RNA sequence: UAUGAUAGAAUAUUCAAGUUGCUUAGCAACCCUUGGUGCUUAGUUCUUCUUUCGCCAAGCAUAUUACACGCGGUUUAGCCGCUAAAGAGGAGAAAUUUAUG
Numbered sequence: 001u002a003u004g005a006u007a008g009a010a011u012a013u014u015c016a017a018g019u020u021g022c023u024u025a026g027c028a029a030c031c032c033u034u035g036g037u038g039c040u041u042a043g044u045u046c047u048u049c050u051u052u053c054g055c056c057a058a059g060c061a062u063a064u065u066a067c068a069c070g071c072g073g074u075u076u077a078g079c080c081g082c083u084a085a086a087g088a089g090g091a092g093a094a095a096u097u098u099a100u101g
Stems, first nucleotide, its partner, number of pairs: 018030005032059007046092004050086002070082004
Annotation
A member of the RNA family "PreQ1-II (pre queuosine) riboswitch aptamer" from Streptococcus hillyeri, 101 nucleotides long. Rfam describes the family as follows. preQ1-II riboswitch was first reported for Weinberg et al. 2007 it was recognised in Streptococcaceae and Lactococcus families in 5' untranslated regions of genes of a membrane protein classified as COG4708 or DUF988. NCBI's taxonomy places the organism under Bacteria, Bacillati, Bacillota, Lactobacillales, Streptococcus. A reference for the family is Meyer et al. (2008), "Confirmation of a second natural preQ1 aptamer class in Streptococcaceae bacteria", RNA. Pairs were carried over by alignment from the consensus structure, which is taken from published work.